[Rfam]
RNA sequence: CCUUUUUCUAUUUGCAAGUGUGUUCCUCUGUUUGACGCUAAAGGGGGAUGCUCCAGAGGAAGCACUCCCCAAGUGUUGUUGCCUCCUUUUGUAGUAUUUUUACUUUAGCGUCAAGAGACGAACACACUUGUGUGCCGAAACAGA
Numbered sequence: 001c002c003u004u005u006u007u008c009u010a011u012u013u014g015c016a017a018g019u020g021u022g023u024u025c026c027u028c029u030g031u032u033u034g035a036c037g038c039u040a041a042a043g044g045g046g047g048a049u050g051c052u053c054c055a056g057a058g059g060a061a062g063c064a065c066u067c068c069c070c071a072a073g074u075g076u077u078g079u080u081g082c083c084u085c086c087u088u089u090u091g092u093a094g095u096a097u098u099u100u101u102a103c104u105u106u107a108g109c110g111u112c113a114a115g116a117g118a119c120g121a122a123c124a125c126a127c128u129u130g131u132g133u134g135c136c137g138a139a140a141c142a143g144a
Stems, first nucleotide, its partner, number of pairs: 002143002005140003009137001014131012027118003031115013045101001046099006054091003058086002062082003065078001068075001